[Rfam]
RNA sequence: AUCUCUUCGCUAAGGAGCUGCUUAUGCGAAAACUCACGGCCACUUUUAUAGUAGGCCUGAUAGGGCUAAUCGCGCUGUCCGUGUCGAGCACGGCUGUCGCAUGUGGCGAUGCCGCGGGAUCGGGCUACUCGGCCCCAAAGUAACCGCUAGCCCGAAUGUGCCGCGCGCACACAAAAAAAGGCCUUCAUCAUGGUGAUGAAGGCCUUUUACU
Numbered sequence: 001a002u003c004u005c006u007u008c009g010c011u012a013a014g015g016a017g018c019u020g021c022u023u024a025u026g027c028g029a030a031a032a033c034u035c036a037c038g039g040c041c042a043c044u045u046u047u048a049u050a051g052u053a054g055g056c057c058u059g060a061u062a063g064g065g066c067u068a069a070u071c072g073c074g075c076u077g078u079c080c081g082u083g084u085c086g087a088g089c090a091c092g093g094c095u096g097u098c099g100c101a102u103g104u105g106g107c108g109a110u111g112c113c114g115c116g117g118g119a120u121c122g123g124g125c126u127a128c129u130c131g132g133c134c135c136c137a138a139a140g141u142a143a144c145c146g147c148u149a150g151c152c153c154g155a156a157u158g159u160g161c162c163g164c165g166c167g168c169a170c171a172c173a174a175a176a177a178a179a180g181g182c183c184u185u186c187a188u189c190a191u192g193g194u195g196a197u198g199a200a201g202g203c204c205u206u207u208u209a210c211u
Stems, first nucleotide, its partner, number of pairs: 002036001004032001006030005013023003038057003042052003063153004072100003075096001079093005106147003113140001116136003158170004176208014